[Rfam]
RNA sequence: ACAACGGCUCUUUUAAGAGCCACACACUGAUCCCUGAUAGAGCUCU
Numbered sequence: 001a002c003a004a005c006g007g008c009u010c011u012u013u014u015a016a017g018a019g020c021c022a023c024a025c026a027c028u029g030a031u032c033c034c035u036g037a038u039a040g041a042g043c044u045c046u
Base pairs, nucleotide, nucleotide: 006021007020008019009018010017011016
This 46-nucleotide RNA from Menidia menidia belongs to the Rfam family "Histone 3' UTR stem-loop". Rfam's curators write: The mRNAs of metazoan histone genes lack a poly-A tail. 3' end processing occurs at a site between a highly conserved stem-loop (modelled by this family) and a purine rich region around 20 nts downstream (the histone downstream element, or HDE). The stem-loop is bound by a 31 kDa stem-loop binding protein (SLBP - also termed the histone hairpin binding protein, or HBP). Together with U7 snRNA binding of the HDE, SLBP binding nucleate s the formation of the processing complex. A reference for the family is DeJong et al. (2002), "NMR structure and dynamics of the RNA-binding site for the histone mRNA stem-loop binding protein", RNA. It scores 39 bits against the family's covariance model.